[Rfam]
RNA sequence: UUAACUCAAAUUUGUAUGAAGUUGGAACAGCGCCCUUAAUGGCAAACGAGGCAAACGUUUCAACUCCAUACAAAUUUGAGCUC
Numbered sequence: 001u002u003a004a005c006u007c008a009a010a011u012u013u014g015u016a017u018g019a020a021g022u023u024g025g026a027a028c029a030g031c032g033c034c035c036u037u038a039a040u041g042g043c044a045a046a047c048g049a050g051g052c053a054a055a056c057g058u059u060u061c062a063a064c065u066c067c068a069u070a071c072a073a074a075u076u077u078g079a080g081c082u083c
Stems, first nucleotide, its partner, number of pairs: 008077009018067001020065009034051003040046001
Dot-bracket structure: .......(((((((((.(.(((((((((.....(((...(.....)..))).....))))))))).).)))))))))......

Notes
The family of this 83-nucleotide RNA from Bombyx mori is "mir-2807 microRNA precursor family". A search with the family's covariance model found it, with a score of 65 bits. Rfam links the family to the GO terms miRNA-mediated post-transcriptional gene silencing and RISC complex. On this family, see Liu et al., BMC Genomics 2010: "MicroRNAs of Bombyx mori identified by Solexa sequencing". Taxonomically the source falls in Bombyx (Eukaryota, Neoptera, Eumetabola, Bombycoidea).